The record is a 53-nucleotide RNA from Coregonus sp. 'balchen', which matches "UnaL2 LINE 3' element" in Rfam. It scores 57 bits against the family's covariance model. It is annotated as a cis-regulatory element. The literature on the family includes a 2004 paper in RNA by Baba et al., "Solution structure of an RNA stem-loop derived from the 3' conserved region of eel LINE UnaL2". Taxonomically the source falls in Coregonus (Eukaryota, Craniata, Actinopteri, Teleostei).
RNA sequence: UAUGCACUAACAGUAAGUCGCUCUGGAUAAGAGCGUCUGCUAAAUGACUAAUA
Numbered sequence: 001u002a003u004g005c006a007c008u009a010a011c012a013g014u015a016a017g018u019c020g021c022u023c024u025g026g027a028u029a030a031g032a033g034c035g036u037c038u039g040c041u042a043a044a045u046g047a048c049u050a051a052u053a
Base pairs, nucleotide, nucleotide: 013040014039015038019035020034021033022032023031024030